[Rfam]
RNA sequence: CAAUGAAGGAAGCAUGGUUAGGUGCACAGAAAUCAAAAUUGCAAAAUUGGGUCUGCAUGUCUGCCCCUCAUGAAAAUUCUCUCUGAUUUUGGGGCCUGGUUUAUGACCUACACUU
Numbered sequence: 001c002a003a004u005g006a007a008g009g010a011a012g013c014a015u016g017g018u019u020a021g022g023u024g025c026a027c028a029g030a031a032a033u034c035a036a037a038a039u040u041g042c043a044a045a046a047u048u049g050g051g052u053c054u055g056c057a058u059g060u061c062u063g064c065c066c067c068u069c070a071u072g073a074a075a076a077u078u079c080u081c082u083c084u085g086a087u088u089u090u091g092g093g094g095c096c097u098g099g100u101u102u103a104u105g106a107c108c109u110a111c112a113c114u115u
Stems, first nucleotide, its partner, number of pairs: 012025004049097005059087003063081001
RNA: Small nucleolar RNA snoR100